Rfam assigns this 101-nucleotide RNA from Microcebus murinus to the family "Y RNA". A reference for the family is Teunissen et al. (2000), "Conserved features of Y RNAs: a comparison of experimentally derived secondary structures", Nucleic Acids Res. It scores 55 bits against the family's covariance model. From the family's description: Y RNAs are components of the Ro ribonucleoprotein particle (Ro RNP), in association with Ro60 and La proteins. The Y RNAs and Ro60 and La proteins are well conserved, but the function of the Ro RNP is not known. In humans the RNA component can be one of four small RNAs -- hY1, hY3, hY4 and hY5. The organism belongs to Microcebus, within Eukaryota. The family's consensus secondary structure is taken from published work. By type it is a non-coding RNA gene.
RNA sequence: AGUGGUGCAAGUGCAGUGGUGUUUACAACUAAUUGAUCACAACCAGUUGCAGAUUCCUUUGUUCCUUCUCCACUCCCACUGCUUCACUUUACCUGCCUUAA
Number, nucleotide and partner (000 for none) at each position: 001a000002g096003u095004g093005g092006u091007g090008c000009a089010a088011g000012u000013g085014c000015a080016g079017u078018g077019g076020u000021g075022u000023u000024u000025a000026c000027a063028a062029c061030u000031a059032a058033u000034u000035g000036a000037u000038c000039a000040c000041a000042a000043c000044c000045a000046g000047u000048u000049g000050c000051a000052g000053a000054u000055u000056c000057c000058u032059u031060u000061g029062u028063u027064c000065c000066u000067u000068c000069u000070c000071c000072a000073c000074u000075c021076c019077c018078a017079c016080u015081g000082c000083u000084u000085c013086a000087c000088u010089u009090u007091a006092c005093c004094u000095g003096c002097c000098u000099u000100a000101a000